[Rfam]
RNA sequence: AGGACGUGCCUUUCAGGCAUCCUCUCCUAGACUUCAGGGCCGCUCCUUCGGAAUGUGGCCCUUUUUUUCGUGUUGG
Number, nucleotide and partner (000 for none) at each position: 001a000002g000003g000004a000005c000006g000007u000008g018009c017010c016011u015012u000013u000014c000015a011016g010017g009018c008019a000020u000021c000022c000023u000024c000025u000026c000027c000028u000029a000030g000031a000032c000033u000034u000035c000036a000037g061038g060039g059040c058041c057042g056043c055044u052045c051046c000047u000048u000049c000050g000051g045052a044053a000054u000055g043056u042057g041058g040059c039060c038061c037062u000063u000064u000065u000066u000067u000068u000069c000070g000071u000072g000073u000074u000075g000076g000

Rfam assigns this 76-nucleotide RNA sequence from Sphingomonas sp. AP4-R1 to the family "Makes More Granules Regulator RNA (mmgR)".
Rfam links the family to the GO terms response to nitrogen compound, protein binding and DNA-templated transcription, termination.
A reference for the family is Corbino et al. (2005), "Evidence for a second class of S-adenosylmethionine riboswitches and other regulatory RNA motifs in alpha-proteobacteria", Genome Biol.